RNA: Plastid-ycf2 5UTR RNA
RNA sequence: GUGCAUCCAGUAGGAAUUGAAUCCGCGACUUCCCAAUUAUAAGUUGGGUGCUUUUACCAUCCAGCCAUGGAUGU
Numbered sequence: 001g002u003g004c005a006u007c008c009a010g011u012a013g014g015a016a017u018u019g020a021a022u023c024c025g026c027g028a029c030u031u032c033c034c035a036a037u038u039a040u041a042a043g044u045u046g047g048g049u050g051c052u053u054u055u056a057c058c059a060u061c062c063a064g065c066c067a068u069g070g071a072u073g074u
Stems, first nucleotide, its partner, number of pairs: 003074006010026002013023002039068002043065008